[Rfam]
RNA sequence: CCCGCCGCAGUGCCUAUCGGGAGGCGGAGCGCAAACGAGGGCGUCGGCCAUUUUGUGUCUGCUUCCUGUGGGACACCGUGGUG
Numbered sequence: 001c002c003c004g005c006c007g008c009a010g011u012g013c014c015u016a017u018c019g020g021g022a023g024g025c026g027g028a029g030c031g032c033a034a035a036c037g038a039g040g041g042c043g044u045c046g047g048c049c050a051u052u053u054u055g056u057g058u059c060u061g062c063u064u065c066c067u068g069u070g071g072g073a074c075a076c077c078g079u080g081g082u083g
Stems, first nucleotide, its partner, number of pairs: 002081004007076001010074002014072002018068011029056003036046003

The family of this 83-nucleotide RNA from Cavia porcellus is "mir-632 microRNA precursor family".
The literature on the family includes a 2010 paper in BMC Res Notes by Brameier, "Genome-wide comparative analysis of microRNAs in three non-human primates".
Its family is annotated with RISC complex and miRNA-mediated post-transcriptional gene silencing in the Gene Ontology.
The organism belongs to Cavia, within Eukaryota.
Pairs were carried over by alignment from the consensus structure, which was predicted with RNAalifold.